[Rfam]
RNA sequence: UCACCGUGGGGCUCGGAUUCGCUUGGUGCAGGUCGGGACUGAUAUGCUGACACAACCACUGGUGCUUUUACCUUAUUGGUUUGUGAGCAGGUAUUGGCUCCCGCCUUGCAUCAAUUGAAUCGGAGCCUCCAAUGGUG
Number, nucleotide and partner (000 for none) at each position: 001u000002c000003a000004c000005c000006g000007u000008g000009g000010g000011g000012c000013u124014c123015g000016g000017a120018u119019u118020c117021g000022c000023u114024u113025g112026g111027u110028g109029c108030a107031g106032g105033u000034c103035g102036g101037g100038a099039c097040u096041g095042a094043u093044a092045u091046g000047c000048u000049g000050a000051c000052a000053c000054a000055a000056c000057c000058a000059c000060u000061g000062g000063u000064g000065c000066u000067u000068u000069u000070a000071c000072c000073u000074u000075a000076u000077u000078g000079g000080u000081u000082u000083g000084u000085g000086a000087g000088c000089a000090g000091g045092u044093a043094u042095u041096g040097g039098c000099u038100c037101c036102c035103g034104c000105c032106u031107u030108g029109c028110a027111u026112c025113a024114a023115u000116u000117g020118a019119a018120u017121c000122g000123g014124a013125g000126c000127c000128u000129c000130c000131a000132a000133u000134g000135g000136u000137g000
Source information: Rfam assigns this 137-nucleotide sequence from Brassica oleracea to the family "MIR168 microRNA precursor family". The match comes from Rfam's covariance-model search (88 bits). On this family, see Lu et al., Plant Cell 2005: "Novel and mechanical stress-responsive MicroRNAs in Populus trichocarpa that are absent from Arabidopsis". The organism belongs to Brassica oleracea, within Eukaryota. Gene Ontology terms of the family: miRNA-mediated post-transcriptional gene silencing and RISC complex.